[Rfam]
RNA: glmS glucosamine-6-phosphate activated ribozyme aptamer
RNA sequence: AAAAUGAAAAAAGCGCCUGAUCUUUCAAAAUGAAAGAUGACGAGGGAAAAGAGUUAUCGAAAAAAUCGGCGGAUGCUCUUUAGGUUAUCACAACCUUAACGGUAUACAAAAGUUAUAAGCGAUUAUAAAAAUAAAAUUACCGUAGUGAUUAUUU
Numbered sequence: 001a002a003a004a005u006g007a008a009a010a011a012a013g014c015g016c017c018u019g020a021u022c023u024u025u026c027a028a029a030a031u032g033a034a035a036g037a038u039g040a041c042g043a044g045g046g047a048a049a050a051g052a053g054u055u056a057u058c059g060a061a062a063a064a065a066u067c068g069g070c071g072g073a074u075g076c077u078c079u080u081u082a083g084g085u086u087a088u089c090a091c092a093a094c095c096u097u098a099a100c101g102g103u104a105u106a107c108a109a110a111a112g113u114u115a116u117a118a119g120c121g122a123u124u125a126u127a128a129a130a131a132u133a134a135a136a137u138u139a140c141c142g143u144a145g146u147g148a149u150u151a152u153u154u
Stems, first nucleotide, its partner, number of pairs: 020038008048081005057069004082096005100142005113128006